Record summary: This 138-nucleotide RNA sequence from Canis lupus belongs to the Rfam family "Small Cajal body specific RNA 3". By type it is a small Cajal body RNA. The organism belongs to Canis lupus, within Eukaryota. About the family: scaRNAs are a specific class of small nuclear RNAs which localise to the Cajal bodies and guide the modification of RNA polymerase II transcribed spliceosomal RNAs U1, U2, U4, U5 and U12. The family's consensus secondary structure was predicted with RNAalifold. The family has 23 seed sequences and 642 matches in Rfam 15.1. Gene Ontology terms of the family: Cajal body, RNA processing and nucleolus.
RNA sequence: AAUGGAACCUGUAACCAACCAUGUGGACAAAUGGAAAAACUGCCUUUUGUCUACAAAUUGCAGUGAUCCUACAUAAACUGGAGGUCUCUGUCUGGCUUAGGACAGCUGGCUAAGUCUGAUCGUUCCCCUCCAUACAAC
Number, nucleotide and partner (000 for none) at each position: 001a000002a000003u000004g069005g068006a067007a000008c000009c063010u062011g061012u060013a000014a000015c000016c000017a000018a000019c000020c000021a000022u055023g054024u053025g052026g051027a050028c049029a000030a000031a000032u000033g000034g046035a045036a000037a000038a000039a000040c000041u000042g000043c000044c000045u035046u034047u000048u000049g028050u027051c026052u025053a024054c023055a022056a000057a000058u000059u000060g012061c011062a010063g009064u000065g000066a000067u006068c005069c004070u000071a000072c000073a000074u000075a000076a000077a000078c000079u000080g131081g130082a129083g128084g127085u000086c000087u000088c122089u000090g120091u119092c118093u000094g116095g115096c114097u113098u112099a111100g110101g000102a000103c000104a000105g000106c000107u000108g000109g000110c100111u099112a098113a097114g096115u095116c094117u000118g092119a091120u090121c000122g088123u000124u000125c000126c000127c084128c083129u082130c081131c080132a000133u000134a000135c000136a000137a000138c000